RNA: Clostridiales-1 RNA
Organism: Blautia liquoris
RNA sequence: AUACAACAGGGUCAAAAGGUUAUGUUUUUCAUGCUUGCAUGAAAAAACAUAACUUUGGGACCCGCAAACUCAUGAGAAUGCAGCCCAAUAGGGCGGAAUUCGAAUGAGUUUAGGAUUGCGGGAGCACGAAGUGCGGAGCAAUCCGUGUUGUAU
Numbered sequence: 001a002u003a004c005a006a007c008a009g010g011g012u013c014a015a016a017a018g019g020u021u022a023u024g025u026u027u028u029u030c031a032u033g034c035u036u037g038c039a040u041g042a043a044a045a046a047a048c049a050u051a052a053c054u055u056u057g058g059g060a061c062c063c064g065c066a067a068a069c070u071c072a073u074g075a076g077a078a079u080g081c082a083g084c085c086c087a088a089u090a091g092g093g094c095g096g097a098a099u100u101c102g103a104a105u106g107a108g109u110u111u112a113g114g115a116u117u118g119c120g121g122g123a124g125c126a127c128g129a130a131g132u133g134c135g136g137a138g139c140a141a142u143c144c145g146u147g148u149u150g151u152a153u
Base pairs, nucleotide, nucleotide: 001153002152003151004150005149006148007147010062011061012060013059016056017055018054019053020052021051022050023049024048025047026046027045028044029042030041031040032039033038066111067110068109069108070107071106072105073104076101077100078099079098083094084093085092086091113144114143115142116141117140118139119138124134125133126132127131